Shown here is a 151-nucleotide sequence from Allocoleopsis franciscana, a member of the family "c-di-AMP riboswitch aptamer (ydaO/yuaA leader)". Rfam 15.1 lists 7,607 matches to the family in 2,262 species. Rfam links the family to the GO terms regulation of gene expression and cyclic-di-AMP binding. Taxonomically the source falls in Allocoleopsis franciscana (Bacteria, Bacillati, Cyanophyceae, Allocoleopsis).
Nucleotides: 151
Stems, first nucleotide, its partner, number of pairs: 012135003024131006034041001042116003050092011095110004
Number, partner (000 for none) and nucleotide at each position: 001000a002000c003000a004000g005000g006000u007000a008000u009000a010000a011000a012135g013134c014133u015000g016000a017000a018000a019000c020000u021000g022000g023000a024131a025130c026129g027128g028127g029126g030000g031000a032000a033000c034041c035000a036000u037000u038000c039000c040000g041034g042116g043115g044114g045000c046000g047000u048000a049000u050092c051091u052090u053089c054088u055087u056086u057085a058084u059083u060082u061000g062000c063000u064000c065000u066000c067000u068000u069000c070000c071000u072000a073000a074000u075000g076000a077000u078000g079000g080000a081000g082060a083059g084058g085057u086056a087055a088054a089053g090052a091051a092050g093000a094000g095110g096109g097108g098107c099000a100000u101000c102000u103000c104000u105000c106000a107098g108097c109096c110095c111000u112000a113000g114044c115043c116042c117000g118000u119000c120000a121000g122000c123000u124000a125000a126029c127028c128027c129026c130025g131024u132000c133014g134013g135012c136000a137000u138000c139000g140000a141000g142000a143000a144000g145000a146000g147000a148000c149000u150000g151000a